[Rfam]
RNA sequence: AAAAAAAUAAGAAAGUUCGCCCGUAUAAUUUUGGUAAUAUGGACCAGAAGUUUCUACAUGACUACCUUAAAUAGUCUGGCUAUGGGUGUUUAAUUAACUGUU
Numbered sequence: 001a002a003a004a005a006a007a008u009a010a011g012a013a014a015g016u017u018c019g020c021c022c023g024u025a026u027a028a029u030u031u032u033g034g035u036a037a038u039a040u041g042g043a044c045c046a047g048a049a050g051u052u053u054c055u056a057c058a059u060g061a062c063u064a065c066c067u068u069a070a071a072u073a074g075u076c077u078g079g080c081u082a083u084g085g086g087u088g089u090u091u092a093a094u095u096a097a098c099u100g101u102u
Stems, first nucleotide, its partner, number of pairs: 018088008029049007060076005

The family of this 102-nucleotide RNA sequence from Maledivibacter halophilus is "Purine riboswitch aptamer". The organism belongs to Maledivibacter, within Bacteria. The match comes from Rfam's covariance-model search (81 bits). The base pairs follow the family's consensus structure, which is taken from published work.